RNA sequence: GUCCUUCAACUAUAUGAAAAUCUCAAUUUUGGUGCUAAAUUCACCAGGUUUCGAUCAUGUGAGCGGCACAUGUUUAUUCUCAAUUUCCGCUGAAAUUAGGACUAAAAUUGGGAUUUGCAUACAGUUACAGUAC
Numbered sequence: 001g002u003c004c005u006u007c008a009a010c011u012a013u014a015u016g017a018a019a020a021u022c023u024c025a026a027u028u029u030u031g032g033u034g035c036u037a038a039a040u041u042c043a044c045c046a047g048g049u050u051u052c053g054a055u056c057a058u059g060u061g062a063g064c065g066g067c068a069c070a071u072g073u074u075u076a077u078u079c080u081c082a083a084u085u086u087c088c089g090c091u092g093a094a095a096u097u098a099g100g101a102c103u104a105a106a107a108u109u110g111g112g113a114u115u116u117g118c119a120u121a122c123a124g125u126u127a128c129a130g131u132a133c
Base pairs, nucleotide, nucleotide: 001133002132004130005129008126009125010124011123013121014120015119016118018116019115020114021113022112023111024110025109026108027107028106029105030104031103032102033101035099036098037097038096040094041093042092043091053079054078060076061075062074063073064072065071

Overview: Rfam assigns this 133-nucleotide RNA from Rehmannia glutinosa to the family "MIR7807 microRNA precursor family". Its family is annotated with miRNA-mediated post-transcriptional gene silencing and RISC complex in the Gene Ontology. It is one of the family's seed sequences. The family's consensus secondary structure was predicted with RNAalifold.